[Rfam]
RNA sequence: AAUGAUACUUUCCAUAAAAGGGCCAGCGAAAAGGCAGUAGCUGGGAAAGCGUCGCUCCGGCUGGGAUAGGUCGGAGGGAGCUUUC
Numbered sequence: 001a002a003u004g005a006u007a008c009u010u011u012c013c014a015u016a017a018a019a020g021g022g023c024c025a026g027c028g029a030a031a032a033g034g035c036a037g038u039a040g041c042u043g044g045g046a047a048a049g050c051g052u053c054g055c056u057c058c059g060g061c062u063g064g065g066a067u068a069g070g071u072c073g074g075a076g077g078g079a080g081c082u083u084u085c
Stems, first nucleotide, its partner, number of pairs: 011022003023044005045085006053078001057074005